[Rfam]
RNA sequence: CUUGUUAACUCAGGAGAGUCUCUUCCCAAAUCAACUAUAAUCAUAAUCUAAAAGGGAAAGAGCGCCGAAGGUGUACGCAGCAAUGGAGCCUGUUUUUAUUCCAUUACUGUUAAUCUCUCAGGCAAAAGGAUGGAGGAAUGAAA
Numbered sequence: 001c002u003u004g005u006u007a008a009c010u011c012a013g014g015a016g017a018g019u020c021u022c023u024u025c026c027c028a029a030a031u032c033a034a035c036u037a038u039a040a041u042c043a044u045a046a047u048c049u050a051a052a053a054g055g056g057a058a059a060g061a062g063c064g065c066c067g068a069a070g071g072u073g074u075a076c077g078c079a080g081c082a083a084u085g086g087a088g089c090c091u092g093u094u095u096u097u098a099u100u101c102c103a104u105u106a107c108u109g110u111u112a113a114u115c116u117c118u119c120a121g122g123c124a125a126a127a128g129g130a131u132g133g134a135g136g137a138a139u140g141a142a143a
Base pairs, nucleotide, nucleotide: 006138009135010134011133013131020062021061022060023059064123065122066121067119068118071117073115077110078109079108080107

This 143-nucleotide sequence from Mediterraneibacter butyricigenes belongs to the Rfam family "Glycine riboswitch aptamer". The match comes from Rfam's covariance-model search (45 bits). The family is grouped with related families in Rfam's "Glycine riboswitch clan". Rfam describes the family as follows. This family represents the bacterial glycine riboswitch. Glycine riboswitches usually consist of two metabolite-binding aptamers domains with similar structures in tandem. The aptamers cooperatively bind glycine to regulate the expression of downstream genes. In Bacillus subtilis, this riboswitch is found upstream of the gcvT operon which controls glycine degradation. Taxonomically the source falls in Mediterraneibacter (Bacteria, Bacillota, Clostridia, Lachnospiraceae).